[Rfam]
RNA sequence: CGUCCGGAUCCGUAUCAUGGCUGGAUGAUAUCGCAAAAUUGACACACCUUGUCGAACAAGGCGGAUCCCGUUAACUCUCCAUACGGCGGGAUUAAAAUCUCGCGAAUUGCUGGGACACCCUUAGAGCUUUCUUCACGACAACGUGACCGGCAACGGUGGGCGUGACCGUUUAAAAAGAAGAAAGAUUGGGCAAUCAGCAGCGAAGCAUCUUUGGAAACGAAGAUGAACGUUCAACGACUAUUGAAAUUUCCUAAAGCUCCCUCUACAAUAACCAAAUUUACCAACAGGUGUGGCGAGAGGAGCCAUGGAAAAAGUAAAUGGUAACCGGCGGCAACGCGGUUAUCAGGCGCGAGACAAAGAAGACAGGGAUGCUUCUUUGAUGAUAUAGUCUGCUCUCACAUGAAAGUGUGAG
Numbered sequence: 001c002g003u004c005c006g007g008a009u010c011c012g013u014a015u016c017a018u019g020g021c022u023g024g025a026u027g028a029u030a031u032c033g034c035a036a037a038a039u040u041g042a043c044a045c046a047c048c049u050u051g052u053c054g055a056a057c058a059a060g061g062c063g064g065a066u067c068c069c070g071u072u073a074a075c076u077c078u079c080c081a082u083a084c085g086g087c088g089g090g091a092u093u094a095a096a097a098u099c100u101c102g103c104g105a106a107u108u109g110c111u112g113g114g115a116c117a118c119c120c121u122u123a124g125a126g127c128u129u130u131c132u133u134c135a136c137g138a139c140a141a142c143g144u145g146a147c148c149g150g151c152a153a154c155g156g157u158g159g160g161c162g163u164g165a166c167c168g169u170u171u172a173a174a175a176a177g178a179a180g181a182a183a184g185a186u187u188g189g190g191c192a193a194u195c196a197g198c199a200g201c202g203a204a205g206c207a208u209c210u211u212u213g214g215a216a217a218c219g220a221a222g223a224u225g226a227a228c229g230u231u232c233a234a235c236g237a238c239u240a241u242u243g244a245a246a247u248u249u250c251c252u253a254a255a256g257c258u259c260c261c262u263c264u265a266c267a268a269u270a271a272c273c274a275a276a277u278u279u280a281c282c283a284a285c286a287g288g289u290g291u292g293g294c295g296a297g298a299g300g301a302g303c304c305a306u307g308g309a310a311a312a313a314g315u316a317a318a319u320g321g322u323a324a325c326c327g328g329c330g331g332c333a334a335c336g337c338g339g340u341u342a343u344c345a346g347g348c349g350c351g352a353g354a355c356a357a358a359g360a361a362g363a364c365a366g367g368g369a370u371g372c373u374u375c376u377u378u379g380a381u382g383a384u385a386u387a388g389u390c391u392g393c394u395c396u397c398a399c400a401u402g403a404a405a406g407u408g409u410g411a412g
Stems, first nucleotide, its partner, number of pairs: 001023002004020003030039002098354004103349002108199006118190003200230002207224004234391001236390005357377006397410005